[Rfam]
RNA sequence: CACUGUAGGAUUUGUAUGGAGUUCGAACGUUCGCCUACGUUUGCCGCCAAGAGCGCUAUUCCAACUGCAUACAAAUUUGAGUUC
Numbered sequence: 001c002a003c004u005g006u007a008g009g010a011u012u013u014g015u016a017u018g019g020a021g022u023u024c025g026a027a028c029g030u031u032c033g034c035c036u037a038c039g040u041u042u043g044c045c046g047c048c049a050a051g052a053g054c055g056c057u058a059u060u061c062c063a064a065c066u067g068c069a070u071a072c073a074a075a076u077u078u079g080a081g082u083u084c
Base pairs, nucleotide, nucleotide: 008078009077010076011075012074013073014072015071016070018068020066021065022064023063025061026060027059029057035051036050039047040046